[Rfam]
RNA: MIR394 microRNA precursor family
Organism: Daucus carota
RNA sequence: CUUACAUGAGUUUUUUGGCAUUCUGUCCACCUCCUUCAUUCACUCUAGUUUGUGUAUCUUUAGAUAUAUCUCUAUCUGAUCUAUGUAGUUUUACAAGAUUUUACAUCUACAUAUCAAGAUUCAUACACAAUUAUGUUUCCUAGCUAGAAACGACACUUGAGUUGAGUCUAAUCUGGUAAGUAAAUAAACAGACAUAGAGGAGUUUUCAGAUGGAGGUGGGCAUACUGCCAACAGAGCUGUGCAAG
Numbered sequence: 001c002u003u004a005c006a007u008g009a010g011u012u013u014u015u016u017g018g019c020a021u022u023c024u025g026u027c028c029a030c031c032u033c034c035u036u037c038a039u040u041c042a043c044u045c046u047a048g049u050u051u052g053u054g055u056a057u058c059u060u061u062a063g064a065u066a067u068a069u070c071u072c073u074a075u076c077u078g079a080u081c082u083a084u085g086u087a088g089u090u091u092u093a094c095a096a097g098a099u100u101u102u103a104c105a106u107c108u109a110c111a112u113a114u115c116a117a118g119a120u121u122c123a124u125a126c127a128c129a130a131u132u133a134u135g136u137u138u139c140c141u142a143g144c145u146a147g148a149a150a151c152g153a154c155a156c157u158u159g160a161g162u163u164g165a166g167u168c169u170a171a172u173c174u175g176g177u178a179a180g181u182a183a184a185u186a187a188a189c190a191g192a193c194a195u196a197g198a199g200g201a202g203u204u205u206u207c208a209g210a211u212g213g214a215g216g217u218g219g220g221c222a223u224a225c226u227g228c229c230a231a232c233a234g235a236g237c238u239g240u241g242c243a244a245g
Base pairs, nucleotide, nucleotide: 012235015231016230017229018228019227020226024222025221026220027219028218029217030216031215032214033213034212